[Rfam]
A member of the RNA family "T-box leader" from Bacillus sp. FJAT-27916, 280 nucleotides long. By type it is a cis-regulatory leader. Pairs were carried over by alignment from the consensus structure, which is taken from published work. The organism belongs to Bacillus, within Bacteria.

RNA sequence: UAAAAGGCAUUGAAGAGAAGAGUAGAUUAAGAUGAUUUCUCUAAAGAGAGCUUCGGCAGCUGAAAAGAAGCGGGAAGGAACUUGAUUGAACAUGGCCUCUGAGCCUCGUGCUGAAAGGAUAGAGUGAUCUAUUGCGAGUAGGUUCCGGCGAGAUUUGGUACUCGUUAUCCAUACCAAGGUGUAAAGAACGUAUGAAUCGUUUAUGCACUUACUGAGACUGUUUAUGCGAAUAAAUAGUGAAUUAAGGUGGUACCGCGUGCAAUCACACCACGUCCUUAAC
Numbered sequence: 001u002a003a004a005a006g007g008c009a010u011u012g013a014a015g016a017g018a019a020g021a022g023u024a025g026a027u028u029a030a031g032a033u034g035a036u037u038u039c040u041c042u043a044a045a046g047a048g049a050g051c052u053u054c055g056g057c058a059g060c061u062g063a064a065a066a067g068a069a070g071c072g073g074g075a076a077g078g079a080a081c082u083u084g085a086u087u088g089a090a091c092a093u094g095g096c097c098u099c100u101g102a103g104c105c106u107c108g109u110g111c112u113g114a115a116a117g118g119a120u121a122g123a124g125u126g127a128u129c130u131a132u133u134g135c136g137a138g139u140a141g142g143u144u145c146c147g148g149c150g151a152g153a154u155u156u157g158g159u160a161c162u163c164g165u166u167a168u169c170c171a172u173a174c175c176a177a178g179g180u181g182u183a184a185a186g187a188a189c190g191u192a193u194g195a196a197u198c199g200u201u202u203a204u205g206c207a208c209u210u211a212c213u214g215a216g217a218c219u220g221u222u223u224a225u226g227c228g229a230a231u232a233a234a235u236a237g238u239g240a241a242u243u244a245a246g247g248u249g250g251u252a253c254c255g256c257g258u259g260c261a262a263u264c265a266c267a268c269c270a271c272g273u274c275c276u277u278a279a280c
Stems, first nucleotide, its partner, number of pairs: 007104002015099003025087006039074003050071005107147002110143003149164003217238007244277004255273005